[Rfam]
RNA sequence: CUUUCUCGGCCGGUUGGGAUAGGCGGCAAUGCCCUUUGACCUCACGGUAUUGCACUUGUCCCGGCCUGUUGAGGACUU
Numbered sequence: 001c002u003u004u005c006u007c008g009g010c011c012g013g014u015u016g017g018g019a020u021a022g023g024c025g026g027c028a029a030u031g032c033c034c035u036u037u038g039a040c041c042u043c044a045c046g047g048u049a050u051u052g053c054a055c056u057u058g059u060c061c062c063g064g065c066c067u068g069u070u071g072a073g074g075a076c077u078u
Stems, first nucleotide, its partner, number of pairs: 004074003009069002012066003016062005022056002026053008
RNA: mir-92 microRNA precursor family